Mammalian CPEB3 ribozyme: a 76-nucleotide sequence from Platysternon megacephalum. The match comes from Rfam's covariance-model search (39 bits).
[Rfam]
Nucleotides: 076
Stems, first nucleotide, its partner, number of pairs: 013045001015044002018041001023074001025072001027070001028040003049065007
Number, partner (000 for none) and nucleotide at each position: 001000u002000a003000g004000c005000c006000c007000u008000a009000u010000u011000g012000g013045g014000g015044g016043g017000c018041c019000a020000u021000a022000c023074c024000a025072g026000g027070g028040g029039c030038a031000u032000u033000c034000a035000u036000g037000u038030u039029g040028c041018g042000a043016c044015u045013c046000u047000g048000u049065c050064a051063g052062a053061u054060u055059c056000u057000c058000u059055g060054a061053a062052u063051c064050u065049g066000a067000g068000a069000c070027u071000g072025c073000a074023g075000c076000c
Taxonomically the source falls in Platysternon (Eukaryota, Craniata, Euteleostomi, Amniota). Rfam's curators write: The mammalian CPEB3 ribozyme is a self cleaving RNA located in the second intron of the CPEB3 gene which belongs to a family of genes regulating messenger RNA polyadenylation. Its family is annotated with RNA nuclease activity in the Gene Ontology.